The record is a 257-nucleotide RNA sequence from Sphingomonadales bacterium UBA6171, which matches "permuted transfer-messenger RNA" in Rfam. Bacterial tmRNA, also known as 10Sa RNA or SsrA, is named for its dual tRNA and mRNA-like properties. Its role is to liberate the mRNA from a stalled ribosome. To accomplish this part of the tmRNA is used as a reading frame that ends in a translation stop signal. The broken mRNA is replaced in the ribosome by the tmRNA and translation of the tmRNA leads to addition of a proteolysis tag to the incomplete protein enabling recognition by a protease. Rfam's curators put it in the seed alignment. Lineage of the source: Bacteria > Pseudomonadati > Pseudomonadota > Alphaproteobacteria > Sphingomonadales.
RNA sequence: GGUGAUGAAUGAUGCCGUGAAAUAGAUGCAACGGACCCGGGGGCAGUACCCGGCGGCUCCACCAUCUUUCUGCGCGGCCCCGCGAUGCUUCGCACCGGGGGGCCUUGCGGUUUGCGCUGAAGCAGAAAGAUGAUUGGGGCCGAACCAGGAUCGACGUGUAUUGAAAGACGGUAUUUUUGCCCGGCCUGAAUGAGCCGUAAAACCGUUCAAAACCUACAAAUGCCAACGAUAACGAGGCAUUUGCGAUCGCUGCGUAA
Numbered sequence: 001g002g003u004g005a006u007g008a009a010u011g012a013u014g015c016c017g018u019g020a021a022a023u024a025g026a027u028g029c030a031a032c033g034g035a036c037c038c039g040g041g042g043g044c045a046g047u048a049c050c051c052g053g054c055g056g057c058u059c060c061a062c063c064a065u066c067u068u069u070c071u072g073c074g075c076g077g078c079c080c081c082g083c084g085a086u087g088c089u090u091c092g093c094a095c096c097g098g099g100g101g102g103c104c105u106u107g108c109g110g111u112u113u114g115c116g117c118u119g120a121a122g123c124a125g126a127a128a129g130a131u132g133a134u135u136g137g138g139g140c141c142g143a144a145c146c147a148g149g150a151u152c153g154a155c156g157u158g159u160a161u162u163g164a165a166a167g168a169c170g171g172u173a174u175u176u177u178u179g180c181c182c183g184g185c186c187u188g189a190a191u192g193a194g195c196c197g198u199a200a201a202a203c204c205g206u207u208c209a210a211a212a213c214c215u216a217c218a219a220a221u222g223c224c225a226a227c228g229a230u231a232a233c234g235a236g237g238c239a240u241u242u243g244c245g246a247u248c249g250c251u252g253c254g255u256a257a
Stems, first nucleotide, its partner, number of pairs: 001181005015171004027160003031157003037053005054142007182197004
Dot-bracket structure: (((((.........((((........(((.(((...(((((.......)))))(((((((...........................................................................)))))))............)))))).......)))).....)))))((((........))))............................................................